[Rfam]
RNA sequence: GGAUCGGGAGGCCACCAUUGGGCAGGUGGCCAGGCAUUGAUCCGAACCCCCUGUUUCGAAAGGGCGUGGCACCGGGAGGCCCCGACGGUGCCUGCG
Numbered sequence: 001g002g003a004u005c006g007g008g009a010g011g012c013c014a015c016c017a018u019u020g021g022g023c024a025g026g027u028g029g030c031c032a033g034g035c036a037u038u039g040a041u042c043c044g045a046a047c048c049c050c051c052u053g054u055u056u057c058g059a060a061a062g063g064g065c066g067u068g069g070c071a072c073c074g075g076g077a078g079g080c081c082c083c084g085a086c087g088g089u090g091c092c093u094g095c096g
Stems, first nucleotide, its partner, number of pairs: 001043005010031007065096005070090005
This 96-nucleotide sequence from Oceanicola sp. S124 belongs to the Rfam family "Rhodo-rpoB RNA".